[Rfam]
RNA: Rhizobiales sRNA Atu_At1
Organism: Phyllobacterium zundukense
RNA sequence: UGUGUGACCGUGUCAACCGAACACGAUGGCAAGGCGAACAGGAGCGUUUUUCCGGUUUCCAAUCCUGGCCAACGAAACGGCAGACGAGCGCCUGUCCCAUCCGGUCC
Numbered sequence: 001u002g003u004g005u006g007a008c009c010g011u012g013u014c015a016a017c018c019g020a021a022c023a024c025g026a027u028g029g030c031a032a033g034g035c036g037a038a039c040a041g042g043a044g045c046g047u048u049u050u051u052c053c054g055g056u057u058u059c060c061a062a063u064c065c066u067g068g069c070c071a072a073c074g075a076a077a078c079g080g081c082a083g084a085c086g087a088g089c090g091c092c093u094g095u096c097c098c099a100u101c102c103g104g105u106c107c
Stems, first nucleotide, its partner, number of pairs: 006106004011023003025101003028097002033092004039067005068081003